RNA: Plastid-psbA-1 3UTR RNA
RNA sequence: GUAGAAGCUCCAUCUAUAAAUGGAUAAGACUACUGUCUUAGUGUAGUAUAUACGAAUUGUUGAAGAGCAAUAUCAAACCUUUUGUUUUAUAGCAAAAGGUUUGAUAUUGCUCUUUUGUU
Numbered sequence: 001g002u003a004g005a006a007g008c009u010c011c012a013u014c015u016a017u018a019a020a021u022g023g024a025u026a027a028g029a030c031u032a033c034u035g036u037c038u039u040a041g042u043g044u045a046g047u048a049u050a051u052a053c054g055a056a057u058u059g060u061u062g063a064a065g066a067g068c069a070a071u072a073u074c075a076a077a078c079c080u081u082u083u084g085u086u087u088u089a090u091a092g093c094a095a096a097a098g099g100u101u102u103g104a105u106a107u108u109g110c111u112c113u114u115u116u117g118u119u
Stems, first nucleotide, its partner, number of pairs: 009024005066111008075102003079098005